The record is a 102-nucleotide RNA sequence from Jeotgalibacillus soli, which matches "Purine riboswitch aptamer" in Rfam. The match comes from Rfam's covariance-model search (83 bits). Taxonomically the source falls in Jeotgalibacillus (Bacteria, Bacilli, Caryophanales, Caryophanaceae).
[Rfam]
RNA sequence: AUUAAAUAUUUUUAUAUUCGUCGUAUAAAAUCGGGAAUAAGGCUCGAAAGUUUCUACCAAGCUACCGUAAAUGGCUUGACUACGAGGUAUUGAACGGACCUG
Numbered sequence: 001a002u003u004a005a006a007u008a009u010u011u012u013u014a015u016a017u018u019c020g021u022c023g024u025a026u027a028a029a030a031u032c033g034g035g036a037a038u039a040a041g042g043c044u045c046g047a048a049a050g051u052u053u054c055u056a057c058c059a060a061g062c063u064a065c066c067g068u069a070a071a072u073g074g075c076u077u078g079a080c081u082a083c084g085a086g087g088u089a090u091u092g093a094a095c096g097g098a099c100c101u102g
Stems, first nucleotide, its partner, number of pairs: 019087001021085005031047005058078007
Dot-bracket structure: ..................(.(((((.....(((((.......)))))..........(((((((.......)))))))..))))).)...............